[Rfam]
RNA: Vault RNA
Organism: Salvator merianae
RNA sequence: GGGCCAGCUUAGCCUAGCAGUUACUUCAUGCAUGAUACAGAUUCAACUAGCUUCUAGCAGUUCGAGACCCGUGGGUGCUGCCUGGCUUUA
Numbered sequence: 001g002g003g004c005c006a007g008c009u010u011a012g013c014c015u016a017g018c019a020g021u022u023a024c025u026u027c028a029u030g031c032a033u034g035a036u037a038c039a040g041a042u043u044c045a046a047c048u049a050g051c052u053u054c055u056a057g058c059a060g061u062u063c064g065a066g067a068c069c070c071g072u073g074g075g076u077g078c079u080g081c082c083u084g085g086c087u088u089u090a
Stems, first nucleotide, its partner, number of pairs: 002087006012076004017072002020069001025066003